Rfam assigns this 86-nucleotide RNA sequence from Alligator sinensis to the family "small Cajal body-specific RNA 18". Rfam links the family to the GO terms RNA processing, Cajal body and nucleolus. A reference for the family is Darzacq et al. (2002), "Cajal body-specific small nuclear RNAs: a novel class of 2'-O-methylation and pseudouridylation guide RNAs", EMBO J. Rfam describes the family as follows. scaRNAs are a specific class of small nuclear RNAs which localise to the Cajal bodies and guide the modification of RNA polymerase II transcribed spliceosomal RNAs U1, U2, U4, U5 and U12. This C/D box domain U91 (also known as U4-8) was identified by Darzacq and is predicted to guide the 2'O-ribose methylation of U4 snRNA C8.

[Rfam]
RNA sequence: UGGUCGGUGAUGAGGAGCCCACUGCGCAAUCCGAGCUGCUGGUAACAGCAUGAUGGAAAUGGUGCUGAGGAAAGCCCCUGAGACCA
Number, nucleotide and partner (000 for none) at each position: 001u000002g085003g084004u083005c082006g000007g000008u000009g000010a000011u000012g000013a000014g000015g000016a000017g000018c000019c000020c000021a000022c000023u000024g000025c000026g000027c000028a000029a000030u000031c000032c000033g000034a000035g000036c000037u000038g049039c048040u047041g046042g000043u000044a000045a000046c041047a040048g039049c038050a000051u000052g000053a000054u000055g000056g000057a000058a000059a000060u000061g000062g000063u000064g000065c000066u000067g000068a000069g000070g000071a000072a000073a000074g000075c000076c000077c000078c000079u000080g000081a000082g005083a004084c003085c002086a000